Record summary
Shown here is an 89-nucleotide sequence, a member of the family "GA-cis RNA". The family's RNA type in Rfam is small RNA. The base pairs follow the family's consensus structure, which is taken from published work.
[Rfam]
RNA sequence: GGGAGGAGAGCGCAUAUGAACCGUAGGUUCAUAUUUAGGAUGCGCUCGACGAUUUACCGCCGAACGAAAGUGAGGGGGUGCUACCCGCG
Numbered sequence: 001g002g003g004a005g006g007a008g009a010g011c012g013c014a015u016a017u018g019a020a021c022c023g024u025a026g027g028u029u030c031a032u033a034u035u036u037a038g039g040a041u042g043c044g045c046u047c048g049a050c051g052a053u054u055u056a057c058c059g060c061c062g063a064a065c066g067a068a069a070g071u072g073a074g075g076g077g078g079u080g081c082u083a084c085c086c087g088c089g
Stems, first nucleotide, its partner, number of pairs: 008047006016032006056079003060075002064071002